Vault RNA: a 100-nucleotide RNA from Crocuta crocuta. Rfam describes the family as follows. This family of RNAs are found as part of the enigmatic vault ribonucleoprotein complex. The family's RNA type in Rfam is non-coding RNA gene. A search with the family's covariance model found it, with a score of 84 bits. Pairs were carried over by alignment from the consensus structure, which is taken from published work. The source organism's lineage runs through Eukaryota, Craniata, Gnathostomata, Hyaenidae and Crocuta.
RNA sequence: GGGUCGGCUUUAGCUCAAGCGGUUACUUCGCAACUGGUUACUUCAAACCUCCCAAUCCCUUCGUGGGGUUCGAGACCCGCGGGUGCUUUCUGACCCUUUU
Numbered sequence: 001g002g003g004u005c006g007g008c009u010u011u012a013g014c015u016c017a018a019g020c021g022g023u024u025a026c027u028u029c030g031c032a033a034c035u036g037g038u039u040a041c042u043u044c045a046a047a048c049c050u051c052c053c054a055a056u057c058c059c060u061u062c063g064u065g066g067g068g069u070u071c072g073a074g075a076c077c078c079g080c081g082g083g084u085g086c087u088u089u090c091u092g093a094c095c096c097u098u099u100u
Stems, first nucleotide, its partner, number of pairs: 002095006013084004019080004027074004
Dot-bracket structure: .((((((.....((((..((((....((((........................................))))..)))))))).....)))))).....